Shown here is a 94-nucleotide sequence, a member of the family "DUF1874 RNA". By type it is a cis-regulatory element. The family's consensus secondary structure is taken from published work.
RNA sequence: UUAAACCCUACCCGCAAGCUAUGGCCAUCCAGGGUAAGAGGUGCCAAAGGCACCCGCCAUAGCGUCCCGCAAGGGAAAGGGUAGGGCAGGAGGA
Numbered sequence: 001u002u003a004a005a006c007c008c009u010a011c012c013c014g015c016a017a018g019c020u021a022u023g024g025c026c027a028u029c030c031a032g033g034g035u036a037a038g039a040g041g042u043g044c045c046a047a048a049g050g051c052a053c054c055c056g057c058c059a060u061a062g063c064g065u066c067c068c069g070c071a072a073g074g075g076a077a078a079g080g081g082u083a084g085g086g087c088a089g090g091a092g093g094a
Stems, first nucleotide, its partner, number of pairs: 006086008018063008038055001040054005065076004